[Rfam]
RNA sequence: GGGCUGGCUUUAGCUCAGCGGUUCCUUCGCCAGUGCUUGGUCAACCUCUUUGCAAAAGUGAAGCGGUUCGAGCCCCGCGGGCGCUCCCAGCCCUUUU
Number, nucleotide and partner (000 for none) at each position: 001g000002g092003g091004c090005u089006g088007g087008c000009u000010u000011u000012a000013g082014c081015u080016c079017a000018g078019c077020g076021g075022u000023u000024c000025c000026u072027u071028c070029g069030c000031c000032a000033g000034u000035g000036c000037u000038u000039g000040g000041u000042c000043a000044a000045c000046c000047u000048c000049u000050u000051u000052g000053c000054a000055a000056a000057a000058g000059u000060g000061a000062a000063g000064c000065g000066g000067u000068u000069c029070g028071a027072g026073c000074c000075c021076c020077g019078c018079g016080g015081g014082c013083g000084c000085u000086c000087c007088c006089a005090g004091c003092c002093c000094u000095u000096u000097u000

This 97-nucleotide sequence from Prolemur simus belongs to the Rfam family "Vault RNA". It scores 75 bits against the family's covariance model. On this family, see Stadler et al., Mol Biol Evol 2009: "Evolution of Vault RNAs". NCBI's taxonomy places the organism under Eukaryota, Vertebrata, Mammalia, Boreoeutheria, Prolemur. By type it is a non-coding RNA gene.